[Rfam]
RNA sequence: CGGCAACAGUGAUGACAGGAGCUGUAGCUGCAUGGAAUGUUUCAUUACUACAUGGAGACAGCAGUCCCUCUAAACUGACGUUGCCC
Numbered sequence: 001c002g003g004c005a006a007c008a009g010u011g012a013u014g015a016c017a018g019g020a021g022c023u024g025u026a027g028c029u030g031c032a033u034g035g036a037a038u039g040u041u042u043c044a045u046u047a048c049u050a051c052a053u054g055g056a057g058a059c060a061g062c063a064g065u066c067c068c069u070c071u072a073a074a075c076u077g078a079c080g081u082u083g084c085c086c
Base pairs, nucleotide, nucleotide: 002085003084004083005082006081007080